[Rfam]
RNA sequence: CAGCUAACAUCGUGUAGAGUUAGACUGUUGUACGUUUAAUAAAAUAUUAUAAAUUGUCCGGUAUCGUAACGAACUGGAACGGAGG
Dot-bracket structure: ((((((((.((.....))))))).)))...........................((((((((.(((...)))))))).)))....
Numbered sequence: 001c002a003g004c005u006a007a008c009a010u011c012g013u014g015u016a017g018a019g020u021u022a023g024a025c026u027g028u029u030g031u032a033c034g035u036u037u038a039a040u041a042a043a044a045u046a047u048u049a050u051a052a053a054u055u056g057u058c059c060g061g062u063a064u065c066g067u068a069a070c071g072a073a074c075u076g077g078a079a080c081g082g083a084g085g
Stems, first nucleotide, its partner, number of pairs: 001027003004023005010018002055081003058077005064072003